[Rfam]
MIR6217 microRNA precursor family: a 218-nucleotide RNA sequence from Miscanthus lutarioriparius. The match comes from Rfam's covariance-model search (142 bits). Pairs were carried over by alignment from the consensus structure, which was predicted with RNAalifold.
RNA sequence: UGGCUACAAAAUAACUUAUUCUGUAGCCACUUUGAGUUACGAUAAUUAGUAUGUUAAUUUACGAGAUUAUAGUAACUCCUUAUUAAGUGGUUUACUAUAACGUUAUGGUAAAUAUCCCUAUGAUAAAUAACGUUAUGGUUUACUAUAACGUUAUGGUAAAUUAGUAUAUAAAAUUAUCGUAAAUGAAGGUGGCUACAAAAUAACUUAUUUUGUAGCCG
Numbered sequence: 001u002g003g004c005u006a007c008a009a010a011a012u013a014a015c016u017u018a019u020u021c022u023g024u025a026g027c028c029a030c031u032u033u034g035a036g037u038u039a040c041g042a043u044a045a046u047u048a049g050u051a052u053g054u055u056a057a058u059u060u061a062c063g064a065g066a067u068u069a070u071a072g073u074a075a076c077u078c079c080u081u082a083u084u085a086a087g088u089g090g091u092u093u094a095c096u097a098u099a100a101c102g103u104u105a106u107g108g109u110a111a112a113u114a115u116c117c118c119u120a121u122g123a124u125a126a127a128u129a130a131c132g133u134u135a136u137g138g139u140u141u142a143c144u145a146u147a148a149c150g151u152u153a154u155g156g157u158a159a160a161u162u163a164g165u166a167u168a169u170a171a172a173a174u175u176a177u178c179g180u181a182a183a184u185g186a187a188g189g190u191g192g193c194u195a196c197a198a199a200a201u202a203a204c205u206u207a208u209u210u211u212g213u214a215g216c217c218g
Stems, first nucleotide, its partner, number of pairs: 001218014016203005022197012037182011050168013066154002069151002073147002080138004087133003091130002093125002098123001103122001107117002